[Rfam]
RNA sequence: UGUUUUCGUGGAGAUGGCAUUCUCCCUUGACCGCCCAUUCGGGCUAAUGAUGCCUACAGGCCU
Numbered sequence: 001u002g003u004u005u006u007c008g009u010g011g012a013g014a015u016g017g018c019a020u021u022c023u024c025c026c027u028u029g030a031c032c033g034c035c036c037a038u039u040c041g042g043g044c045u046a047a048u049g050a051u052g053c054c055u056a057c058a059g060g061c062c063u
Stems, first nucleotide, its partner, number of pairs: 010025004016054006033044004
Dot-bracket structure: .........[[[[..((((((]]]].......((((....))))....)))))).........